[Rfam]
RNA sequence: CAACGUCUCCGGCCUGACACAAUAUCCUGCCGUGGUAUUGUGUGACCUGCAGUGUCAGCCGGAGACUUGG
Numbered sequence: 001c002a003a004c005g006u007c008u009c010c011g012g013c014c015u016g017a018c019a020c021a022a023u024a025u026c027c028u029g030c031c032g033u034g035g036u037a038u039u040g041u042g043u044g045a046c047c048u049g050c051a052g053u054g055u056c057a058g059c060c061g062g063a064g065a066c067u068u069g070g
Stems, first nucleotide, its partner, number of pairs: 001070001003068001005066003009062005021039006044056003
Record summary:
Shown here is a 70-nucleotide sequence from Cladophialophora chaetospira, a member of the family "bZIP non canonical Hac1/Xbp1 intron". For this family Rfam cites "Conserved RNA structures in the non-canonical Hac1/Xbp1 intron" (Hooks and Griffiths-Jones, RNA Biol, 2011). bZIP intron RNA is a non-canonical intron that was first reported in HAC1 gene in yeast and XBP1 gene in Metazoa. Lineage of the source: Eukaryota > Opisthokonta > Fungi > Pezizomycotina > Cladophialophora.